[Rfam]
RNA sequence: UCUGAAACUUGGCGUGGAUACAGAGAAGCCAAGGAUUCAGA
Numbered sequence: 001u002c003u004g005a006a007a008c009u010u011g012g013c014g015u016g017g018a019u020a021c022a023g024a025g026a027a028g029c030c031a032a033g034g035a036u037u038c039a040g041a
Stems, first nucleotide, its partner, number of pairs: 001041006008034001009032005
RNA: MAT2A 3'UTR stem loop D
Organism: Salmo trutta